[Rfam]
RNA sequence: AAAGCGUAACUGAAAAGCUUAUAGAGUAGGAG
Numbered sequence: 001a002a003a004g005c006g007u008a009a010c011u012g013a014a015a016a017g018c019u020u021a022u023a024g025a026g027u028a029g030g031a032g
Base pairs, nucleotide, nucleotide: 002020003019004018005017010030011029

The record is a 32-nucleotide RNA sequence, which matches "DUF805b RNA" in Rfam. It is one of the family's seed sequences. It is annotated as a cis-regulatory element. The base pairs follow the family's consensus structure, which is taken from published work.